[Rfam]
RNA sequence: AACGUCCUUAUCUUGGGUUGCGAGCUCAGCCAAUGAACGUCUAGUGAGGUUGAGACUGCUGACAACAAACAAAAGAUAAAAGCACGCAUCGCUCGCCCUCGUGGCGAGUCGGAUGCAAUUUUUGGACAC
Numbered sequence: 001a002a003c004g005u006c007c008u009u010a011u012c013u014u015g016g017g018u019u020g021c022g023a024g025c026u027c028a029g030c031c032a033a034u035g036a037a038c039g040u041c042u043a044g045u046g047a048g049g050u051u052g053a054g055a056c057u058g059c060u061g062a063c064a065a066c067a068a069a070c071a072a073a074a075g076a077u078a079a080a081a082g083c084a085c086g087c088a089u090c091g092c093u094c095g096c097c098c099u100c101g102u103g104g105c106g107a108g109u110c111g112g113a114u115g116c117a118a119u120u121u122u123u124g125g126a127c128a129c
Stems, first nucleotide, its partner, number of pairs: 007017003020059003025054007037045002086116005092108006
U4atac minor spliceosomal RNA: a 129-nucleotide RNA from Dreissena polymorpha. The base pairs follow the family's consensus structure, which is taken from published work. Rfam classes the family as a spliceosomal small nuclear RNA. Rfam links the family to the GO terms spliceosomal tri-snRNP complex assembly, mRNA 5'-splice site recognition and U4atac snRNP. A reference for the family is Davila Lopez et al. (2008), "Computational screen for spliceosomal RNA genes aids in defining the phylogenetic distribution of major and minor spliceosomal components", Nucleic Acids Res. Taxonomically the source falls in Dreissena (Eukaryota, Bilateria, Protostomia, Mollusca). The family has 61 seed sequences and 1,648 matches in Rfam 15.1.